The record is a 336-nucleotide RNA from Cupriavidus gilardii, which matches "Bacterial RNase P class A" in Rfam. Pairs were carried over by alignment from the consensus structure, which is taken from published work. The match comes from Rfam's covariance-model search (251 bits). NCBI's taxonomy places the organism under Bacteria, Pseudomonadati, Pseudomonadota, Betaproteobacteria, Cupriavidus gilardii. Rfam classes the family as a ribozyme.
RNA sequence: AAAGCAGGCCAGACAACCGCUGCUUGCCCGGCAACGGGCAAGGGGAGGAAAGUCCGGACUCCACAGGGCAGGGUGGUGGCUAACAGCCAUCCACGGCAACGUGCGGAAUAGGGCCACAGAGACGAGUCUUCGCGCUGGCUUGCCGGCGCGAAGGGUGAAACGCGGUAACCUCCACCCGGAGCAAUCCCAAAUAGGCAGACGAUGAAGCGGCCCGCCGAGUCUGCGGGUAGGGAGCUGGAGCCGGCCGGUAACGGCCGGCCUAGAGGAAUGGUUGUCACGCGGCGCGGCGCAAGCUGCAGCCGUGCACAGAAUCCGGCUUAUCGGCCUGCUUUGCCU
Numbered sequence: 001a002a003a004g005c006a007g008g009c010c011a012g013a014c015a016a017c018c019g020c021u022g023c024u025u026g027c028c029c030g031g032c033a034a035c036g037g038g039c040a041a042g043g044g045g046a047g048g049a050a051a052g053u054c055c056g057g058a059c060u061c062c063a064c065a066g067g068g069c070a071g072g073g074u075g076g077u078g079g080c081u082a083a084c085a086g087c088c089a090u091c092c093a094c095g096g097c098a099a100c101g102u103g104c105g106g107a108a109u110a111g112g113g114c115c116a117c118a119g120a121g122a123c124g125a126g127u128c129u130u131c132g133c134g135c136u137g138g139c140u141u142g143c144c145g146g147c148g149c150g151a152a153g154g155g156u157g158a159a160a161c162g163c164g165g166u167a168a169c170c171u172c173c174a175c176c177c178g179g180a181g182c183a184a185u186c187c188c189a190a191a192u193a194g195g196c197a198g199a200c201g202a203u204g205a206a207g208c209g210g211c212c213c214g215c216c217g218a219g220u221c222u223g224c225g226g227g228u229a230g231g232g233a234g235c236u237g238g239a240g241c242c243g244g245c246c247g248g249u250a251a252c253g254g255c256c257g258g259c260c261u262a263g264a265g266g267a268a269u270g271g272u273u274g275u276c277a278c279g280c281g282g283c284g285c286g287g288c289g290c291a292a293g294c295u296g297c298a299g300c301c302g303u304g305c306a307c308a309g310a311a312u313c314c315g316g317c318u319u320a321u322c323g324g325c326c327u328g329c330u331u332u333g334c335c336u
Stems, first nucleotide, its partner, number of pairs: 001332010011321001012276007020045002023042006050319003054316005059181004066213004071177005076090005091105001092103004106172002111170002113166003128154002130151009185233004195224006207215002240259008